[Rfam]
RNA: Small nucleolar RNA SNORD116
RNA sequence: CGACUGAUAGGACUUCCCAUAUAUAACAUUUCCUUGGAAAGGCUGAACAAUGAGUGAAAACUAUAUACCGUGUCAUCGUCGUCGGCAACUGAGGUCA
Numbered sequence: 001c002g003a004c005u006g007a008u009a010g011g012a013c014u015u016c017c018c019a020u021a022u023a024u025a026a027c028a029u030u031u032c033c034u035u036g037g038a039a040a041g042g043c044u045g046a047a048c049a050a051u052g053a054g055u056g057a058a059a060a061c062u063a064u065a066u067a068c069c070g071u072g073u074c075a076u077c078g079u080c081g082u083c084g085g086c087a088a089c090u091g092a093g094g095u096c097a
Base pairs, nucleotide, nucleotide: 002096003095004094005093027056028055029054031053032052034050035049036048